[Rfam]
RNA: small nucleolar RNA snoR143
RNA sequence: AUGCACCUGUCGAUUUAUGAGGUCUCACUCAUCUUUCUAGUGAGAUUUCAAGAUAUGGUGCGUACAGGAAAAGCUGUUUUACGGCAGCGGCCAGACAACCGUAGAGAUAGAUCCACAGGUGAGUGGUUUGGAUACUAUUCGUCUACUGAUUCUAUCUCACAUCA
Numbered sequence: 001a002u003g004c005a006c007c008u009g010u011c012g013a014u015u016u017a018u019g020a021g022g023u024c025u026c027a028c029u030c031a032u033c034u035u036u037c038u039a040g041u042g043a044g045a046u047u048u049c050a051a052g053a054u055a056u057g058g059u060g061c062g063u064a065c066a067g068g069a070a071a072a073g074c075u076g077u078u079u080u081a082c083g084g085c086a087g088c089g090g091c092c093a094g095a096c097a098a099c100c101g102u103a104g105a106g107a108u109a110g111a112u113c114c115a116c117a118g119g120u121g122a123g124u125g126g127u128u129u130g131g132a133u134a135c136u137a138u139u140c141g142u143c144u145a146c147u148g149a150u151u152c153u154a155u156c157u158c159a160c161a162u163c164a
Base pairs, nucleotide, nucleotide: 002062003061004060005059006058009054010053011052018050019049020048021047022046023045024044025043026042027041104158105157106156107155108154109153110152111151123139126136